[Rfam]
RNA sequence: GGUCUGAUGCCACGUCGCCGGGAGCGAUAUAGCGGUGAUCGAAGAUGCUAUGAUUGGACCAAAAUGGAUCUCAUGUUUCGCAUUUUGAUUGGAAUCUGUGGAUCAACUCAUCCCAUUCCUUCACAAAGCCAUUUAUUGCGAUUACAUUU
Numbered sequence: 001g002g003u004c005u006g007a008u009g010c011c012a013c014g015u016c017g018c019c020g021g022g023a024g025c026g027a028u029a030u031a032g033c034g035g036u037g038a039u040c041g042a043a044g045a046u047g048c049u050a051u052g053a054u055u056g057g058a059c060c061a062a063a064a065u066g067g068a069u070c071u072c073a074u075g076u077u078u079c080g081c082a083u084u085u086u087g088a089u090u091g092g093a094a095u096c097u098g099u100g101g102a103u104c105a106a107c108u109c110a111u112c113c114c115a116u117u118c119c120u121u122c123a124c125a126a127a128g129c130c131a132u133u134u135a136u137u138g139c140g141a142u143u144a145c146a147u148u149u
Base pairs, nucleotide, nucleotide: 002059003058004057005056006055007054008053009051013047014046015045016044020040021039024033025032078141079140080139081138082137091130092129097125098124100122101121102120
A member of the RNA family "Small nucleolar RNA snoR2/U65" from Actinidia chinensis, 149 nucleotides long. The literature on the family includes a 1998 paper in J Cell Sci by Shaw et al., "Localization and processing from a polycistronic precursor of novel snoRNAs in maize". Its family is annotated with RNA processing and nucleolus in the Gene Ontology. Clan: SNORA65 clan. Lineage of the source: Eukaryota > Viridiplantae > Streptophytina > Actinidia > Actinidia chinensis.